The family of this 73-nucleotide sequence from Diabrotica balteata is "mir-965 microRNA precursor family". Pairs were carried over by alignment from the consensus structure, which was predicted with RNAalifold. The literature on the family includes a 2012 paper in Bioorg Khim by Huang et al., "The regulation of silkworm fibroin L chain production by miRNA-965 and miRNA-1926 in insect cells".

RNA sequence: UUUUAAAAAGGAGAAGCUACAUGUUAUAUAGGUCUUCGGCUUCUAUAUAACAUGUAGCUUCUCCUUUUUAAAA
Numbered sequence: 001u002u003u004u005a006a007a008a009a010g011g012a013g014a015a016g017c018u019a020c021a022u023g024u025u026a027u028a029u030a031g032g033u034c035u036u037c038g039g040c041u042u043c044u045a046u047a048u049a050a051c052a053u054g055u056a057g058c059u060u061c062u063c064c065u066u067u068u069u070a071a072a073a
Stems, first nucleotide, its partner, number of pairs: 003071005009065003013061002017057005024050002028048003